[Rfam]
RNA sequence: AAAGUAGCAAUAACCACUUUCUUGUUCUAGUAAGAGUGUUGGUAUUGCUCCUUUAUUU
Numbered sequence: 001a002a003a004g005u006a007g008c009a010a011u012a013a014c015c016a017c018u019u020u021c022u023u024g025u026u027c028u029a030g031u032a033a034g035a036g037u038g039u040u041g042g043u044a045u046u047g048c049u050c051c052u053u054u055a056u057u058u
Base pairs, nucleotide, nucleotide: 001054002053003052004051006049007048008047009046010045011044012043014041019036020035021034022033023032024031
Plastid-psbA-3 3UTR RNA: a 58-nucleotide RNA sequence from Gossypium mustelinum. The source organism's lineage runs through Eukaryota, Streptophyta, Tracheophyta, rosids and Gossypium. It scores 63 bits against the family's covariance model. Rfam's curators write: Plastid psbA-3 is a non-coding RNA (ncRNA) present in plastids. It was identified in inverted repeat sequences in the 3 prime untranslate region (3UTR) of photosystem II quinone-binding protein (psbA).